[Rfam]
mir-181 microRNA precursor family: an 82-nucleotide RNA from Parambassis ranga. The family has 157 seed sequences and 3,490 matches in Rfam 15.1.

RNA sequence: AAGUCUCAGGGAACAUUCAACGCUGUCGGUGAGUUUGUGACUCAGAGGAAACCAUCGAGUGUUGAGUGUACCCUAACGCUUG
Dot-bracket structure: .(((.(.(.....(((((((((...((((((.((((............)))))))))).))))))))).....).).).)).
Pairs were carried over by alignment from the consensus structure, which was predicted with PFOLD. Rfam links the family to the GO terms miRNA-mediated post-transcriptional gene silencing and RISC complex. A reference for the family is Ambros (2001), "microRNAs: tiny regulators with great potential", Cell.